A member of the RNA family "MIR8565 microRNA precursor family" from Amborella trichopoda, 154 nucleotides long. The match comes from Rfam's covariance-model search (141 bits). Its family is annotated with RISC complex and miRNA-mediated post-transcriptional gene silencing in the Gene Ontology.

RNA sequence: CCCCCAUCCAUGUAUGUAGAACCCCAAAGGAUCACCAUUAAAGUUGGCACGGAUCUCUAAAAAAAUUAUCACAUGGGUGUGAGACUUGACUUUUCUAGAUAUCCAUACCAAUUUUAAUGGUAAUCAUUUGGGGUUCUACACACAUGGGUGGGAG
Numbered sequence: 001c002c003c004c005c006a007u008c009c010a011u012g013u014a015u016g017u018a019g020a021a022c023c024c025c026a027a028a029g030g031a032u033c034a035c036c037a038u039u040a041a042a043g044u045u046g047g048c049a050c051g052g053a054u055c056u057c058u059a060a061a062a063a064a065a066u067u068a069u070c071a072c073a074u075g076g077g078u079g080u081g082a083g084a085c086u087u088g089a090c091u092u093u094u095c096u097a098g099a100u101a102u103c104c105a106u107a108c109c110a111a112u113u114u115u116a117a118u119g120g121u122a123a124u125c126a127u128u129u130g131g132g133g134u135u136c137u138a139c140a141c142a143c144a145u146g147g148g149u150g151g152g153a154g
Stems, first nucleotide, its partner, number of pairs: 003152011015140014030125003034121014049106001051104004056099004061094004066089003069082005